[Rfam]
RNA: MIR1520 microRNA precursor family
Organism: Glycine max
RNA sequence: UUCUUAUUGGAUGAUGAUUGUCACAUGUCAUAUUCUGAUUGGAUGUCAACUCCAUGAAAGAUUAAAUGCAUUGUUAUUUUCAUUGAACAAUAAGAAUAUGCCACGUGACCGUCAUCAUCU
Numbered sequence: 001u002u003c004u005u006a007u008u009g010g011a012u013g014a015u016g017a018u019u020g021u022c023a024c025a026u027g028u029c030a031u032a033u034u035c036u037g038a039u040u041g042g043a044u045g046u047c048a049a050c051u052c053c054a055u056g057a058a059a060g061a062u063u064a065a066a067u068g069c070a071u072u073g074u075u076a077u078u079u080u081c082a083u084u085g086a087a088c089a090a091u092a093a094g095a096a097u098a099u100g101c102c103a104c105g106u107g108a109c110c111g112u113c114a115u116c117a118u119c120u
Stems, first nucleotide, its partner, number of pairs: 020109004026103001029100003033096004038091003